The record is a 91-nucleotide sequence from Medicago truncatula, which matches "MIR2617 microRNA precursor family" in Rfam.
[Rfam]
RNA sequence: ACGAAGUGUGACAUGCCCAUUAGAAUUAUUACUCUGAUGUGCGUUUAUUUUAUUAAAUAAAUUAUAUUUGGGAAUGGGGUGUUACAAUUGG
Number, nucleotide and partner (000 for none) at each position: 001a000002c091003g000004a089005a088006g000007u086008g085009u084010g083011a082012c081013a080014u079015g000016c078017c077018c076019a075020u074021u073022a000023g000024a000025a000026u000027u000028a000029u000030u000031a000032c000033u000034c000035u000036g000037a000038u000039g000040u000041g000042c000043g000044u000045u000046u000047a000048u000049u000050u000051u000052a000053u000054u000055a000056a000057a000058u000059a000060a000061a000062u000063u000064a000065u000066a000067u000068u000069u000070g000071g000072g000073a021074a020075u019076g018077g017078g016079g014080u013081g012082u011083u010084a009085c008086a007087a000088u005089u004090g000091g002
Pairs were carried over by alignment from the consensus structure, which was predicted with RNAalifold.
Rfam 15.1 lists 1,174 matches to the family in 2 species.
Rfam links the family to the GO terms miRNA-mediated post-transcriptional gene silencing and RISC complex.
Taxonomically the source falls in Medicago (Eukaryota, Tracheophyta, Magnoliopsida, Pentapetalae).